[Rfam]
RNA sequence: AGCUGGUGGAAGUGCGUCAGUCAUAGCACUGUCAACAAAACCCCAAAACCGUAAACUCAGAGCAAUUCGCCUGGUUCCUCUUUAAAGCAAAACCAGGAGGUUCCGCCAGCUACCAGAGGACGAAGUGGGCUAAGUGAAAUGAAAAUUUGAGAGUUUCUCUCCAUCACUUAGCCCCGCCUCUCAUUCUUUU
Numbered sequence: 001a002g003c004u005g006g007u008g009g010a011a012g013u014g015c016g017u018c019a020g021u022c023a024u025a026g027c028a029c030u031g032u033c034a035a036c037a038a039a040a041c042c043c044c045a046a047a048a049c050c051g052u053a054a055a056c057u058c059a060g061a062g063c064a065a066u067u068c069g070c071c072u073g074g075u076u077c078c079u080c081u082u083u084a085a086a087g088c089a090a091a092a093c094c095a096g097g098a099g100g101u102u103c104c105g106c107c108a109g110c111u112a113c114c115a116g117a118g119g120a121c122g123a124a125g126u127g128g129g130c131u132a133a134g135u136g137a138a139a140u141g142a143a144a145a146u147u148u149g150a151g152a153g154u155u156u157c158u159c160u161c162c163a164u165c166a167c168u169u170a171g172c173c174c175c176g177c178c179u180c181u182c183a184u185u186c187u188u189u190u
Stems, first nucleotide, its partner, number of pairs: 006106005018031004070097003074093002115181005126176003129172002133168005
RNA: Ciliate telomerase RNA